Nucleotides: 048
Stems, first nucleotide, its partner, number of pairs: 004031007013022002015047003019044002
Number, partner (000 for none) and nucleotide at each position: 001000a002000a003000c004031u005030c006029c007028u008027c009026a010025c011000a012000a013022c014021g015047g016046c017045u018000u019044c020043c021014u022013g023000g024000c025010g026009u027008g028007a029006g030005g031004g032000g033000c034000a035000u036000c037000c038000c039000c040000a041000a042000u043020g044019g045017a046016g047015c048000a
SAM/SAH riboswitch aptamer: a 48-nucleotide sequence from Profundibacterium mesophilum.
On this family, see Weickhmann et al., Nucleic Acids Res 2019: "The structure of the SAM/SAH-binding riboswitch".
The organism belongs to Profundibacterium mesophilum, within Bacteria.